Rfam assigns this 78-nucleotide RNA sequence from Atopobium sp. oral taxon 199 to the family "aspS RNA". The base pairs follow the family's consensus structure, which is taken from published work. Taxonomically the source falls in Atopobium sp. oral taxon 199 (Bacteria, Coriobacteriales, Atopobiaceae, Atopobium). By type it is a cis-regulatory element.
RNA sequence: GCAAGGGUGCGCCGUCUACGCACGUUUGCCGUCUGCUGAGCACUGCCCGAUUUGACACAGGGCAGAGAGACGAAAGGA
Numbered sequence: 001g002c003a004a005g006g007g008u009g010c011g012c013c014g015u016c017u018a019c020g021c022a023c024g025u026u027u028g029c030c031g032u033c034u035g036c037u038g039a040g041c042a043c044u045g046c047c048c049g050a051u052u053u054g055a056c057a058c059a060g061g062g063c064a065g066a067g068a069g070a071c072g073a074a075a076g077g078a
Stems, first nucleotide, its partner, number of pairs: 001029005007023005031071004036067002043065006